[Rfam]
RNA sequence: ACUUCAUUUCACGUACUCGCUCACCGGUCAGAGAGACGAGAGAGUAUGAGAAAUGAAGAGA
Number, nucleotide and partner (000 for none) at each position: 001a000002c058003u057004u056005c055006a054007u053008u000009u000010c050011a000012c048013g047014u046015a045016c044017u043018c000019g000020c040021u039022c038023a000024c000025c000026g000027g000028u000029c000030a000031g000032a000033g000034a000035g000036a000037c000038g022039a021040g020041a000042g000043a017044g016045u015046a014047u013048g012049a000050g010051a000052a000053a007054u006055g005056a004057a003058g002059a000060g000061a000

Shown here is a 61-nucleotide sequence from Pristionchus pacificus, a member of the family "mir-8364 microRNA precursor family".
The match comes from Rfam's covariance-model search (73 bits).
The family has 13 seed sequences and 3,320 matches in Rfam 15.1.
Taxonomically the source falls in Pristionchus (Eukaryota, Chromadorea, Rhabditida, Neodiplogasteridae).
The family's consensus secondary structure was predicted with RNAalifold.